[Rfam]
RNA sequence: CGUACGAAAGGGCAACCUCAUUGAAAGAUGUUGGUACGCAAAACUAUAGGGGCUAAGUCAUUCGUUGAUAUGCCAGCCAGAUACCGAA
Numbered sequence: 001c002g003u004a005c006g007a008a009a010g011g012g013c014a015a016c017c018u019c020a021u022u023g024a025a026a027g028a029u030g031u032u033g034g035u036a037c038g039c040a041a042a043a044c045u046a047u048a049g050g051g052g053c054u055a056a057g058u059c060a061u062u063c064g065u066u067g068a069u070a071u072g073c074c075a076g077c078c079a080g081a082u083a084c085c086g087a088a
Base pairs, nucleotide, nucleotide: 012039013038017034018033019030020029021028022027042082044080045079049078050077051074052073053072058068059067060066
Description: The record is an 88-nucleotide RNA from Anaerobacillus alkaliphilus, which matches "c-di-GMP-I riboswitch aptamer" in Rfam. The organism belongs to Anaerobacillus, within Bacteria.